[Rfam]
RNA: t44 RNA
RNA sequence: AAACAUUUAUCUUUAAAUCACACACAUUCCGACACAUAUUCCGGGGUGCCCUACUGAUAGUACGGGUCGGAGUUAUGGGGAAUGUGGAGGCCUAAC
Numbered sequence: 001a002a003a004c005a006u007u008u009a010u011c012u013u014u015a016a017a018u019c020a021c022a023c024a025c026a027u028u029c030c031g032a033c034a035c036a037u038a039u040u041c042c043g044g045g046g047u048g049c050c051c052u053a054c055u056g057a058u059a060g061u062a063c064g065g066g067u068c069g070g071a072g073u074u075a076u077g078g079g080g081a082a083u084g085u086g087g088a089g090g091c092c093u094a095a096c
Stems, first nucleotide, its partner, number of pairs: 023086008035077004040071004048067004